A member of the RNA family "Actinobacteria sRNA Ms_IGR-5" from Nocardioides sp. Root79, 188 nucleotides long.
RNA sequence: ACACGGGAAAGGAGGUGGUCCGAAGAAUGAUUUCUCAUCGGAUGCGUGAGGUGGCUGCCCGCUAGCAGCCCAGCAGUACGAACCACUUCGGCUGCGUCGCGAAACCACAGCAGCCACCCGACCCGCAGGUGAGCCCGGACCAUCCACCGGGCGCGGUCCUCCCGGACCACUCCUGCGGGUCGCUGCUU
Numbered sequence: 001a002c003a004c005g006g007g008a009a010a011g012g013a014g015g016u017g018g019u020c021c022g023a024a025g026a027a028u029g030a031u032u033u034c035u036c037a038u039c040g041g042a043u044g045c046g047u048g049a050g051g052u053g054g055c056u057g058c059c060c061g062c063u064a065g066c067a068g069c070c071c072a073g074c075a076g077u078a079c080g081a082a083c084c085a086c087u088u089c090g091g092c093u094g095c096g097u098c099g100c101g102a103a104a105c106c107a108c109a110g111c112a113g114c115c116a117c118c119c120g121a122c123c124c125g126c127a128g129g130u131g132a133g134c135c136c137g138g139a140c141c142a143u144c145c146a147c148c149g150g151g152c153g154c155g156g157u158c159c160u161c162c163c164g165g166a167c168c169a170c171u172c173c174u175g176c177g178g179g180u181c182g183c184u185g186c187u188u
Base pairs, nucleotide, nucleotide: 014059015058016057017056018055019054060101061100062099065095066094068092069091070090119182120181121180122179123178124177125176126175127174128173129172131170133152134151135150136149137148138147
Overview:
Lineage of the source: Bacteria > Actinomycetota > Actinomycetes > Propionibacteriales > Nocardioides. A reference for the family is Li et al. (2013), "Identification of small RNAs in Mycobacterium smegmatis using heterologous Hfq", RNA. The match comes from Rfam's covariance-model search (104 bits).